[Rfam]
RNA sequence: CGGAAGUGCCUUGCCGAUCGUGCCUGAUGUGGUCCUAGAGAGACCCCAUCAUCGCAGGUCGCAAGGCACUUCUUCGUUUCUGGAAGAACCAUCCACCGGCAUCAAGCCGGGUGAUCCGG
Numbered sequence: 001c002g003g004a005a006g007u008g009c010c011u012u013g014c015c016g017a018u019c020g021u022g023c024c025u026g027a028u029g030u031g032g033u034c035c036u037a038g039a040g041a042g043a044c045c046c047c048a049u050c051a052u053c054g055c056a057g058g059u060c061g062c063a064a065g066g067c068a069c070u071u072c073u074u075c076g077u078u079u080c081u082g083g084a085a086g087a088a089c090c091a092u093c094c095a096c097c098g099g100c101a102u103c104a105a106g107c108c109g110g111g112u113g114a115u116c117c118g119g
Base pairs, nucleotide, nucleotide: 002073003072004071005070006069007068008067009066010065011064012063013062015061016060017059019057021056022055023054025051026050027049028048032044033043034042099117101115102114103113104112
Shown here is a 119-nucleotide RNA sequence, a member of the family "Actinobacteria sRNA Ms_IGR-7". Rfam 15.1 lists 463 matches to the family in 194 species. For this family Rfam cites "Identification of small RNAs in Mycobacterium smegmatis using heterologous Hfq" (Li et al., RNA, 2013). Rfam classes the family as a small RNA. A search with the family's covariance model found it, with a score of 54 bits.